[Rfam]
RNA sequence: CGCUGGCAGAGGUAACUUUGCCAGUGAUUAAGCAGAAGUCAGCAGACGGCAUAGAGCC
Dot-bracket structure: ((.((((((((....)))))))).))...........(((....)))(((.....)))
Overview:
Group II catalytic intron D1-D4-1: a 58-nucleotide RNA sequence. On this family, see Bonen and Vogel, Trends Genet 2001: "The ins and outs of group II introns". Rfam describes the family as follows. Group II introns are found in rRNA, tRNA and mRNA of organelles in fungi, plants and protists, and also in mRNA in bacteria. Rfam links the family to the GO term Group II intron splicing. Pairs were carried over by alignment from the consensus structure.